Annotation:
The record is an 82-nucleotide RNA sequence from Methylococcus sp. EFPC2, which matches "c-di-GMP-I riboswitch aptamer" in Rfam.
[Rfam]
RNA sequence: UGUACCAAUCGCCACACCCGUCGCGAGGCGGGGUCGGAAAGCCACGGUUCUUGUGAGAAAUCAAGAAGGCCGGGCCGCCUCC
Numbered sequence: 001u002g003u004a005c006c007a008a009u010c011g012c013c014a015c016a017c018c019c020g021u022c023g024c025g026a027g028g029c030g031g032g033g034u035c036g037g038a039a040a041g042c043c044a045c046g047g048u049u050c051u052u053g054u055g056a057g058a059a060a061u062c063a064a065g066a067a068g069g070c071c072g073g074g075c076c077g078c079c080u081c082c
Stems, first nucleotide, its partner, number of pairs: 012037002017032006041075003045072003048067006
A search with the family's covariance model found it, with a score of 50 bits.